[Rfam]
RNA sequence: GUUAGGGGAUCGAAGAUGAUUAACAAGACGACGAACUAGUUCAUUUAAAGACUCUGUUCGCCAGUAUCUGGUCAUCGAAAGUGGCGCGAAAGCGUGCGCUAGUCAAAAUGUAUUUUGGCAACACCGUCAAAUUGCGGGGACUUCCUAAAGCUUCUGCUACCAAGCUAGCGUCGAAAGACAGCUAGUGGCCGAGUUAACAGCCCUGGGUAUGGUAAAAACGCAGAAGAUGAGUUCUCACGAACGAAAUGGAUGAUCCGCAGCCAAGCUCUAAACACGCAGCUGCUGCGUGCACGAGUGCAGUUCACAGACUAGACGUCGGUGGGCCGAGAGGCUUAAGAUAUAGUCGAUCUGGACGCGAAAGCGUCGCAGGGAAAUGCAGAUACCGUUGUAGUCCUAACCAUAAACUAUGCCGACUAGGGAUCGGGUGUGGCCCAAUGGACCUGCCCGGCACCUUACGAGAAAUCAAAGUUUUUGGGU
Numbered sequence: 001g002u003u004a005g006g007g008g009a010u011c012g013a014a015g016a017u018g019a020u021u022a023a024c025a026a027g028a029c030g031a032c033g034a035a036c037u038a039g040u041u042c043a044u045u046u047a048a049a050g051a052c053u054c055u056g057u058u059c060g061c062c063a064g065u066a067u068c069u070g071g072u073c074a075u076c077g078a079a080a081g082u083g084g085c086g087c088g089a090a091a092g093c094g095u096g097c098g099c100u101a102g103u104c105a106a107a108a109u110g111u112a113u114u115u116u117g118g119c120a121a122c123a124c125c126g127u128c129a130a131a132u133u134g135c136g137g138g139g140a141c142u143u144c145c146u147a148a149a150g151c152u153u154c155u156g157c158u159a160c161c162a163a164g165c166u167a168g169c170g171u172c173g174a175a176a177g178a179c180a181g182c183u184a185g186u187g188g189c190c191g192a193g194u195u196a197a198c199a200g201c202c203c204u205g206g207g208u209a210u211g212g213u214a215a216a217a218a219c220g221c222a223g224a225a226g227a228u229g230a231g232u233u234c235u236c237a238c239g240a241a242c243g244a245a246a247u248g249g250a251u252g253a254u255c256c257g258c259a260g261c262c263a264a265g266c267u268c269u270a271a272a273c274a275c276g277c278a279g280c281u282g283c284u285g286c287g288u289g290c291a292c293g294a295g296u297g298c299a300g301u302u303c304a305c306a307g308a309c310u311a312g313a314c315g316u317c318g319g320u321g322g323g324c325c326g327a328g329a330g331g332c333u334u335a336a337g338a339u340a341u342a343g344u345c346g347a348u349c350u351g352g353a354c355g356c357g358a359a360a361g362c363g364u365c366g367c368a369g370g371g372a373a374a375u376g377c378a379g380a381u382a383c384c385g386u387u388g389u390a391g392u393c394c395u396a397a398c399c400a401u402a403a404a405c406u407a408u409g410c411c412g413a414c415u416a417g418g419g420a421u422c423g424g425g426u427g428u429g430g431c432c433c434a435a436u437g438g439a440c441c442u443g444c445c446c447g448g449c450a451c452c453u454u455a456c457g458a459g460a461a462a463u464c465a466a467a468g469u470u471u472u473u474g475g476g477u
Base pairs, nucleotide, nucleotide: 001398002397003396004395005394006393011391015387016386017385018384409477410476411475412470413469414468416453417452418451421448422447423446424445425444426443427442430440432438457464458463
The family of this 477-nucleotide part of an RNA from Tortispora caseinolytica is "Eukaryotic small subunit ribosomal RNA". The source organism's lineage runs through Eukaryota, Opisthokonta, saccharomyceta, Trigonopsidaceae and Tortispora caseinolytica. Its family is annotated with structural constituent of ribosome and ribosome in the Gene Ontology.